The record is an 86-nucleotide RNA sequence from Loxodonta africana, which matches "mir-877 microRNA precursor family" in Rfam.
RNA sequence: GUAGAGGAGAUGGCGCAGGGGACACAGGCUAUGACAUGGGGGCUCCUGGGGCCCUUGAACAUGUGUCCUCUUCUCCCUCCUCCCAG
Numbered sequence: 001g002u003a004g005a006g007g008a009g010a011u012g013g014c015g016c017a018g019g020g021g022a023c024a025c026a027g028g029c030u031a032u033g034a035c036a037u038g039g040g041g042g043c044u045c046c047u048g049g050g051g052c053c054c055u056u057g058a059a060c061a062u063g064u065g066u067c068c069u070c071u072u073c074u075c076c077c078u079c080c081u082c083c084c085a086g
Stems, first nucleotide, its partner, number of pairs: 004082006012076002015073001017071010028060001037057006043050002
Notes
A reference for the family is Berezikov et al. (2006), "Many novel mammalian microRNA candidates identified by extensive cloning and RAKE analysis", Genome Res.